Overview:
The family of this 84-nucleotide RNA from Longibaculum muris is "c-di-GMP-I riboswitch aptamer". Rfam links the family to the GO term cyclic-di-GMP binding.
RNA sequence: GUACAAACAAGGCAAAGUUGUUGAAAAACAAUGACGCAAAACUAUAGGGUCUAAACUUUUUAAGUAUGACAGCCAGUUGCACUA
Number, nucleotide and partner (000 for none) at each position: 001g000002u000003a000004c000005a000006a000007a000008c000009a000010a000011g000012g037013c036014a000015a000016a000017g032018u031019u030020g029021u028022u027023g000024a000025a000026a000027a022028a021029c020030a019031a018032u017033g000034a000035c000036g013037c012038a000039a000040a078041a077042c076043u075044a000045u000046a000047g074048g073049g070050u069051c068052u000053a000054a000055a000056c064057u063058u062059u000060u000061u000062a058063a057064g056065u000066a000067u000068g051069a050070c049071a000072g000073c048074c047075a043076g042077u041078u040079g000080c000081a000082c000083u000084a000
Pairs were carried over by alignment from the consensus structure, which is taken from published work.